[Rfam]
RNA sequence: CUGUGUCGGGCCUUGGCACUGGGAGAAUUCACAGGAGAUGUGUUGAAUACCCGUGAAUUUCCUGAUGCCUUAGCUCGAUGCGG
Number, nucleotide and partner (000 for none) at each position: 001c000002u000003g081004u080005g079006u078007c077008g076009g075010g074011c000012c000013u000014u000015g069016g068017c067018a066019c000020u064021g063022g062023g060024a000025g059026a058027a000028u000029u056030c055031a054032c053033a000034g051035g000036a000037g000038a000039u000040g000041u000042g000043u000044u000045g000046a000047a000048u000049a000050c000051c034052c000053g032054u031055g030056a029057a000058u026059u025060u023061c000062c022063u021064g020065a000066u018067g017068c016069c015070u000071u000072a000073g000074c010075u009076c008077g007078a006079u005080g004081c003082g000083g000
RNA: mir-263 microRNA precursor family